[Rfam]
RNA sequence: AGUUAUAUGUUAUUGCAUUACAAACAUUUCUUUAUCCAAAGAGAUUGUCUCAUCAAUUAAGAAUAAGUGUUGUUAAGAUAGGUGUAGAUGUAAUCAGAUUUAGAAAAUGGUGGUUGCGACUGGACUCGAACCAGCGACCCCUACCA
Dot-bracket structure: ....................(((...(((.........)))...)))................(((......)))................................(((.((...((.((((.......)))))).)).)))...
Numbered sequence: 001a002g003u004u005a006u007a008u009g010u011u012a013u014u015g016c017a018u019u020a021c022a023a024a025c026a027u028u029u030c031u032u033u034a035u036c037c038a039a040a041g042a043g044a045u046u047g048u049c050u051c052a053u054c055a056a057u058u059a060a061g062a063a064u065a066a067g068u069g070u071u072g073u074u075a076a077g078a079u080a081g082g083u084g085u086a087g088a089u090g091u092a093a094u095c096a097g098a099u100u101u102a103g104a105a106a107a108u109g110g111u112g113g114u115u116g117c118g119a120c121u122g123g124a125c126u127c128g129a130a131c132c133a134g135c136g137a138c139c140c141c142u143a144c145c146a
Stems, first nucleotide, its partner, number of pairs: 021047003027041003064075003108143003112139002117136002120134004
Source information
This 146-nucleotide RNA sequence from Helicobacter bilis belongs to the Rfam family "Bacterial antisense RNA HPnc0260". On this family, see Sharma et al., Nature 2010: "The primary transcriptome of the major human pathogen Helicobacter pylori".